[Rfam]
RNA sequence: AAAGAAAAAAACCUGCAGAAAAAUUCCUGCAGGUCCCUUUGUUUUCCUUUAAGGAAAAACAAAAAGGCAAAGGGAGAGGAGAAACCGGAGAAAGAACUUAUGGGGAAGUUUAAGUCUUCUCCGAGU
Number, nucleotide and partner (000 for none) at each position: 001a000002a000003a000004g000005a000006a000007a000008a000009a000010a000011a034012c033013c032014u031015g030016c029017a028018g027019a000020a000021a000022a000023a000024u000025u000026c000027c018028u017029g016030c015031a014032g013033g012034u011035c074036c073037c072038u071039u070040u000041g000042u000043u000044u062045u061046c000047c000048u059049u058050u057051a000052a000053g000054g000055a000056a000057a050058a049059a048060c000061a045062a044063a000064a000065a000066g000067g000068c000069a000070a039071a038072g037073g036074g035075a000076g000077a000078g000079g000080a000081g000082a000083a000084a000085c000086c123087g122088g121089a120090g000091a000092a118093a117094g116095a000096a115097c114098u113099u112100a111101u000102g000103g000104g000105g000106a000107a000108g000109u000110u000111u100112a099113a098114g097115u096116c094117u093118u092119c000120u089121c088122c087123g086124a000125g000126u000
Notes: The record is a 126-nucleotide sequence from Virgibacillus indicus, which matches "ylbH leader" in Rfam. Rfam links the family to the GO term regulation of gene expression. From the family's description: This family is a putative regulatory RNA structure that is found upstream of the ylbH gene in B. subtilis and related low GC Gram-positive bacteria. Rfam classes the family as a cis-regulatory leader.